[Rfam]
RNA sequence: UAUAUGCUUGUCUCAAAGAUUAAGCCAUGCAUGUCUCAGUGCAAGCCGUAUUAAGGCGAUACCGCGAAUGGCUCAAUAUAUCAGUUUUGGUUCCUUAGAUCUUACUCAGUUACUUGGAUAACUGUGGUAAUUCUAGAGCUAAUACAUGCAAUCAGAACUCUGACCAGUGAUGGGAUGAGUGCUUUUAUUAGAUCAAAACCAAUCGACGGAGGGCCUCGCGUCCGAAGUCGUUAAUUUUGAUGAAUCUGGAUAACUUUUGCCGAUCGCAUGGUCCAGUACCGGCGACGCAUCUUUCAAAUGUCUGCCUUAUCAACUUUCGAUGGUAGUUUCUGCGACUACCAUGGUUGUCACGGGUAACGGGGAAUCAGGGUUCGAUUCCGGAGAGGGAGCCUGAGAAACGGCUACCACAUCCAAGGAAGGCAGCAGGCGCGCAAAUUACCCACUCCCGGCACGGGGAGGUAGUGACGAAAAAUAACGAUACGGGACUCUUACGAGGCCUCGUAAUCGGAAUGAGUACACUUUAAAUAUUUUAACGAGGAACAAUUGGAGGGCAAGUCUGGUGCCAGCAGCCGCGGUAAUUCCAGCUCCAAUAGCGUAU
Numbered sequence: 001u002a003u004a005u006g007c008u009u010g011u012c013u014c015a016a017a018g019a020u021u022a023a024g025c026c027a028u029g030c031a032u033g034u035c036u037c038a039g040u041g042c043a044a045g046c047c048g049u050a051u052u053a054a055g056g057c058g059a060u061a062c063c064g065c066g067a068a069u070g071g072c073u074c075a076a077u078a079u080a081u082c083a084g085u086u087u088u089g090g091u092u093c094c095u096u097a098g099a100u101c102u103u104a105c106u107c108a109g110u111u112a113c114u115u116g117g118a119u120a121a122c123u124g125u126g127g128u129a130a131u132u133c134u135a136g137a138g139c140u141a142a143u144a145c146a147u148g149c150a151a152u153c154a155g156a157a158c159u160c161u162g163a164c165c166a167g168u169g170a171u172g173g174g175a176u177g178a179g180u181g182c183u184u185u186u187a188u189u190a191g192a193u194c195a196a197a198a199c200c201a202a203u204c205g206a207c208g209g210a211g212g213g214c215c216u217c218g219c220g221u222c223c224g225a226a227g228u229c230g231u232u233a234a235u236u237u238u239g240a241u242g243a244a245u246c247u248g249g250a251u252a253a254c255u256u257u258u259g260c261c262g263a264u265c266g267c268a269u270g271g272u273c274c275a276g277u278a279c280c281g282g283c284g285a286c287g288c289a290u291c292u293u294u295c296a297a298a299u300g301u302c303u304g305c306c307u308u309a310u311c312a313a314c315u316u317u318c319g320a321u322g323g324u325a326g327u328u329u330c331u332g333c334g335a336c337u338a339c340c341a342u343g344g345u346u347g348u349c350a351c352g353g354g355u356a357a358c359g360g361g362g363a364a365u366c367a368g369g370g371u372u373c374g375a376u377u378c379c380g381g382a383g384a385g386g387g388a389g390c391c392u393g394a395g396a397a398a399c400g401g402c403u404a405c406c407a408c409a410u411c412c413a414a415g416g417a418a419g420g421c422a423g424c425a426g427g428c429g430c431g432c433a434a435a436u437u438a439c440c441c442a443c444u445c446c447c448g449g450c451a452c453g454g455g456g457a458g459g460u461a462g463u464g465a466c467g468a469a470a471a472a473u474a475a476c477g478a479u480a481c482g483g484g485a486c487u488c489u490u491a492c493g494a495g496g497c498c499u500c501g502u503a504a505u506c507g508g509a510a511u512g513a514g515u516a517c518a519c520u521u522u523a524a525a526u527a528u529u530u531u532a533a534c535g536a537g538g539a540a541c542a543a544u545u546g547g548a549g550g551g552c553a554a555g556u557c558u559g560g561u562g563c564c565a566g567c568a569g570c571c572g573c574g575g576u577a578a579u580u581c582c583a584g585c586u587c588c589a590a591u592a593g594c595g596u597a598u
Stems, first nucleotide, its partner, number of pairs: 002598007011470001013468002017463001018430001024428003028425003033065002039062002045057002072383003082304003088298001091297002097292004113148001115146002122138002125135003157180004164173002185253005198241001200239002220229001222227001264285004269281004306354003313345003320342008358380004362373004385406002388403003408419001410417002436461001438460003444456005476507003479503006486495003514534002516531001518530001544590006557584004566573002